[Rfam]
RNA sequence: GCCUUGGUAACGAGGGGUCUGGAGGAAGCCGAUAGCAAAACACUGACCAGAUGAACAAGAAGCAGAUAGGAGGCAUAUUGGGUGGGUAAGAAAUCCUGCAUUUUCGAAGCCCAAUACAUACACGGAAAGCAAAUACGUAUAUCCGACAGACAUAAGUGUGAAAGCAGUGCGU
Numbered sequence: 001g002c003c004u005u006g007g008u009a010a011c012g013a014g015g016g017g018u019c020u021g022g023a024g025g026a027a028g029c030c031g032a033u034a035g036c037a038a039a040a041c042a043c044u045g046a047c048c049a050g051a052u053g054a055a056c057a058a059g060a061a062g063c064a065g066a067u068a069g070g071a072g073g074c075a076u077a078u079u080g081g082g083u084g085g086g087u088a089a090g091a092a093a094u095c096c097u098g099c100a101u102u103u104u105c106g107a108a109g110c111c112c113a114a115u116a117c118a119u120a121c122a123c124g125g126a127a128a129g130c131a132a133a134u135a136c137g138u139a140u141a142u143c144c145g146a147c148a149g150a151c152a153u154a155a156g157u158g159u160g161a162a163a164g165c166a167g168u169g170c171g172u
Base pairs, nucleotide, nucleotide: 002015003014004013005012006011028172029171032168035165036164040159041158042157043156044155048149050147063145065143066142067141073138074137077134078133079132081130083128084112085111086110087109090105091104092103093102